The record is a 48-nucleotide sequence from Tissierella sp. P1, which matches "uup RNA" in Rfam.
A search with the family's covariance model found it, with a score of 53 bits.
RNA sequence: GAGAAAUCUGCUCUGUACAAUUGAAUUCGAUGAAGCAUUGUACCGAGC
Numbered sequence: 001g002a003g004a005a006a007u008c009u010g011c012u013c014u015g016u017a018c019a020a021u022u023g024a025a026u027u028c029g030a031u032g033a034a035g036c037a038u039u040g041u042a043c044c045g046a047g048c
Stems, first nucleotide, its partner, number of pairs: 011047003015043001017041003
Dot-bracket structure: ..........(((.(.(((...................))).).))).

NCBI's taxonomy places the organism under Bacteria, Bacillati, Tissierellia, Tissierellales, Tissierella.
By type it is a cis-regulatory element.